[Rfam]
RNA sequence: AGGCUUUCAAGAUUGAUGGAAUCCCCCUAUAUUAGAGAGGUCGGGAAACCGACUAUGGUGCUACACAGGCAUGUGGAAUAAGCGUUACGGACCCGGGGGCAGUACCCGGCGCCUCCACCAAAACCGCCCAGCACAUCACAAACCCGCGUUAUCAGGGUUGUGAGGUUGGCCGGGAUCGAGGGGGCGAAACAGGAUCGACGUGCGUGGUAAAGAUGUGUUUGGUACCCGGCAUGGUACCGCCGUUAUCGGGCCGAAACUAUAGUUGCAAAUGACAACGAUAGUGGGCUUGCCGUCGCCGCUUAACAGCGGUUGGUAGCCAAAUUAAGUCCUCGGCCUUCACACGUCGAGGCGGGGUUCGGGGCGCACCUGGCAACAGAAGCGCCCCACC
Numbered sequence: 001a002g003g004c005u006u007u008c009a010a011g012a013u014u015g016a017u018g019g020a021a022u023c024c025c026c027c028u029a030u031a032u033u034a035g036a037g038a039g040g041u042c043g044g045g046a047a048a049c050c051g052a053c054u055a056u057g058g059u060g061c062u063a064c065a066c067a068g069g070c071a072u073g074u075g076g077a078a079u080a081a082g083c084g085u086u087a088c089g090g091a092c093c094c095g096g097g098g099g100c101a102g103u104a105c106c107c108g109g110c111g112c113c114u115c116c117a118c119c120a121a122a123a124c125c126g127c128c129c130a131g132c133a134c135a136u137c138a139c140a141a142a143c144c145c146g147c148g149u150u151a152u153c154a155g156g157g158u159u160g161u162g163a164g165g166u167u168g169g170c171c172g173g174g175a176u177c178g179a180g181g182g183g184g185c186g187a188a189a190c191a192g193g194a195u196c197g198a199c200g201u202g203c204g205u206g207g208u209a210a211a212g213a214u215g216u217g218u219u220u221g222g223u224a225c226c227c228g229g230c231a232u233g234g235u236a237c238c239g240c241c242g243u244u245a246u247c248g249g250g251c252c253g254a255a256a257c258u259a260u261a262g263u264u265g266c267a268a269a270u271g272a273c274a275a276c277g278a279u280a281g282u283g284g285g286c287u288u289g290c291c292g293u294c295g296c297c298g299c300u301u302a303a304c305a306g307c308g309g310u311u312g313g314u315a316g317c318c319a320a321a322u323u324a325a326g327u328c329c330u331c332g333g334c335c336u337u338c339a340c341a342c343g344u345c346g347a348g349g350c351g352g353g354g355u356u357c358g359g360g361g362c363g364c365a366c367c368u369g370g371c372a373a374c375a376g377a378a379g380c381g382c383c384c385c386a387c388c
Stems, first nucleotide, its partner, number of pairs: 040053005057226005068219007083204003087201003093109005110186007227242004232253003237249002352368004358385006